[Rfam]
RNA sequence: ACAAAAGCAAGGUCUUGUUACCUUUUCUGAACUAGGUUCUUGUAAACUUCACUAAAAUUACUUGUGCAUUGUCCUUCAGUGAACCUCUGGAUUUAUUGGUGCCUGAAGGUUCAGUAAAUGAUGCUACAUUU
Numbered sequence: 001a002c003a004a005a006a007g008c009a010a011g012g013u014c015u016u017g018u019u020a021c022c023u024u025u026u027c028u029g030a031a032c033u034a035g036g037u038u039c040u041u042g043u044a045a046a047c048u049u050c051a052c053u054a055a056a057a058u059u060a061c062u063u064g065u066g067c068a069u070u071g072u073c074c075u076u077c078a079g080u081g082a083a084c085c086u087c088u089g090g091a092u093u094u095a096u097u098g099g100u101g102c103c104u105g106a107a108g109g110u111u112c113a114g115u116a117a118a119u120g121a122u123g124c125u126a127c128a129u130u131u
Stems, first nucleotide, its partner, number of pairs: 005049003011038002014035002017032001066124007080113007